The family of this 84-nucleotide RNA from Synaphobranchus kaupii is "mir-252 microRNA precursor family". Its family is annotated with miRNA-mediated post-transcriptional gene silencing and RISC complex in the Gene Ontology.
[Rfam]
Nucleotides: 084
Base pairs, nucleotide, nucleotide: 001084002083003082004081005080006079007078010075011074012073013072014071015070016069017068018067019066024061025060026059027058028057029056030055031054032053033052
Number, partner (000 for none) and nucleotide at each position: 001084a002083c003082c004081u005080c006079u007078u008000u009000u010075u011074a012073a013072g014071u015070a016069c017068a018067a019066g020000u021000g022000a023000a024061a025060u026059a027058g028057u029056g030055a031054a032053c033052a034000g035000u036000u037000a038000a039000u040000a041000c042000u043000g044000u045000u046000a047000u048000u049000a050000a051000c052033u053032g054031u055030u056029c057028a058027c059026u060025a061024u062000u063000u064000c065000a066019c067018u068017u069016g070015u071014a072013c073012u074011u075010a076000a077000a078007a079006a080005g081004a082003g083002g084001u